[Rfam]
RNA sequence: AGCCAUGAGAUAAACACAUAGCGAACUAUUCUUUCGCCUUUUACUAAAGAAUACCGUGUGUUUGUCUCGCUAAGUGGCAUACGCCUAUUUUUGUAAGAGCCCUAAAAAGGGCUCU
Number, nucleotide and partner (000 for none) at each position: 001a000002g000003c077004c076005a075006u074007g000008a067009g066010a065011u064012a063013a062014a061015c060016a059017c058018a057019u000020a000021g000022c000023g000024a000025a000026c000027u053028a052029u051030u050031c049032u048033u047034u046035c000036g000037c000038c000039u000040u000041u000042u000043a000044c000045u000046a034047a033048a032049g031050a030051a029052u028053a027054c000055c000056g000057u018058g017059u016060g015061u014062u013063u012064g011065u010066c009067u008068c000069g000070c000071u000072a000073a000074g006075u005076g004077g003078c000079a000080u000081a000082c000083g000084c000085c000086u000087a000088u000089u000090u000091u000092u000093g000094u000095a115096a000097g114098a113099g112100c111101c110102c109103u000104a000105a000106a000107a000108a000109g102110g101111g100112c099113u098114c097115u095
RNA: U5 spliceosomal RNA
Organism: Vigna angularis